[Rfam]
The record is a 119-nucleotide sequence from Eubacteriaceae bacterium Marseille-Q4139, which matches "drum RNA" in Rfam. It scores 92 bits against the family's covariance model. From the family's description: Firmicutes, Bacteroidetes (1 example), Proteobacteria (2 examples), Spirochaetes (2 examples). The family's RNA type in Rfam is small RNA.

RNA sequence: AAGCGCUGAAGUAAGAAGGUGCGCCGGUAUGCAUCAUCUUACAGAGCUUUCAGGAGGGGUUGUGCAGUGAAACCUCAAACCGGCGUAGGCCGCCUGGCGGCCGAAAGAAAAUGCUCGGG
Number, nucleotide and partner (000 for none) at each position: 001a049002a048003g047004c046005g000006c000007u000008g000009a000010a000011g042012u041013a040014a039015g038016a037017a000018g035019g034020u033021g032022c031023g000024c083025c082026g081027g080028u000029a000030u000031g022032c021033a020034u019035c018036a000037u016038c015039u014040u013041a012042c011043a000044g000045a000046g004047c003048u002049u001050u000051c000052a000053g000054g000055a000056g000057g000058g000059g000060u000061u000062g000063u000064g114065c113066a112067g000068u000069g000070a000071a000072a000073c000074c000075u000076c000077a000078a000079a000080c027081c026082g025083g024084c000085g000086u000087a000088g102089g101090c100091c099092g098093c097094c000095u000096g000097g093098c092099g091100g090101c089102c088103g000104a000105a000106a000107g000108a000109a000110a000111a000112u066113g065114c064115u000116c000117g000118g000119g000